[Rfam]
Notes
The record is a 131-nucleotide RNA from Gossypium hirsutum, which matches "Small nucleolar RNA snoR111" in Rfam.
RNA sequence: UUAAAAGUGAGGAGGCGGCUUAUAAGAUUGUCUCUUCAUAGGGAAGAACAUUGAGGUAUAUCAAAAACGAAGGCCGAGAUAUCGUUUCAGUCGUCAUUUCCAUUGACGAUCUGAUUGUUGCUCGUCCACAU
Numbered sequence: 001u002u003a004a005a006a007g008u009g010a011g012g013a014g015g016c017g018g019c020u021u022a023u024a025a026g027a028u029u030g031u032c033u034c035u036u037c038a039u040a041g042g043g044a045a046g047a048a049c050a051u052u053g054a055g056g057u058a059u060a061u062c063a064a065a066a067a068c069g070a071a072g073g074c075c076g077a078g079a080u081a082u083c084g085u086u087u088c089a090g091u092c093g094u095c096a097u098u099u100c101c102a103u104u105g106a107c108g109a110u111c112u113g114a115u116u117g118u119u120g121c122u123c124g125u126c127c128a129c130a131u
Base pairs, nucleotide, nucleotide: 007039008038009037010036011035012034013033014032015031016030017029072127073126075124076123077122078121081115082114083113084112090110091109092108093107094106095105096104098102

On this family, see Marker et al., Curr Biol 2002: "Experimental RNomics: identification of 140 candidates for small non-messenger RNAs in the plant Arabidopsis thaliana".